Nucleotides: 046
Base pairs, nucleotide, nucleotide: 006028007027008026009025010024015039016038
Number, partner (000 for none) and nucleotide at each position: 001000g002000a003000u004000a005000u006028c007027g008026u009025g010024g011000u012000u013000c014000g015039u016038a017000a018000u019000c020000c021000a022000u023000c024010c025009c026008a027007c028006g029000u030000a031000a032000a033000a034000a035000a036000a037000c038016u039015a040000g041000g042000a043000g044000u045000u046000a

The family of this 46-nucleotide RNA from Frischella perrara is "PreQ1 (pre queuosine) riboswitch aptamer". A search with the family's covariance model found it, with a score of 48 bits. Rfam links the family to the GO term queuosine biosynthetic process. Lineage of the source: Bacteria > Pseudomonadota > Orbales > Orbaceae > Frischella.